Annotation: This 101-nucleotide RNA from Pseudomonas cremoricolorata belongs to the Rfam family "t44 RNA". It is annotated as a small RNA. A search with the family's covariance model found it, with a score of 74 bits. Rfam describes the family as follows. This family consists of a number of bacterial RNA genes of between 135 and 170 bases in length. The t44 gene has been identified in several species of enteric bacteria but homologs have also been identified in Pseudomonas and Coxiella species. The t44 gene is found between the map and rpsB genes in all species in the full alignment apart from Shigella flexneri. The function of this RNA is unknown.

RNA sequence: UCCCCGCGAGCCUAAACCCACACACGUGUCGACACGAUGGCCUGGGUGCCCGGAAUCUUCAGGAUUCUCGGGUUGGUCAUUGGGAUACGUGGAGGCCCAAC
Numbered sequence: 001u002c003c004c005c006g007c008g009a010g011c012c013u014a015a016a017c018c019c020a021c022a023c024a025c026g027u028g029u030c031g032a033c034a035c036g037a038u039g040g041c042c043u044g045g046g047u048g049c050c051c052g053g054a055a056u057c058u059u060c061a062g063g064a065u066u067c068u069c070g071g072g073u074u075g076g077u078c079a080u081u082g083g084g085a086u087a088c089g090u091g092g093a094g095g096c097c098c099a100a101c
Base pairs, nucleotide, nucleotide: 023091024090025089026088027087028086029085030084035082036081037080038079039078040077041076042075048073049072050071051070052069